[Rfam]
The record is a 76-nucleotide RNA sequence from Branchiostoma floridae, which matches "mir-9/mir-79 microRNA precursor family" in Rfam.
RNA sequence: UGAGUGUUGUCUUUGGUUAUCUAGCUGUAUGAGAGUCUUUUGUCACCAUAAAGCUAGGUAACCAAAACAACAACCA
Dot-bracket structure: ((..(.((((.(((((((((((((((.((((...............)))).))))))))))))))))))).)..))
About this RNA:
Lineage of the source: Eukaryota > Eumetazoa > Chordata > Leptocardii > Branchiostoma. The family's consensus secondary structure was predicted with RNAalifold. For this family Rfam cites "Temporal regulation of microRNA expression in Drosophila melanogaster mediated by hormonal signals and broad-Complex gene activity" (Sempere et al., Dev Biol, 2003).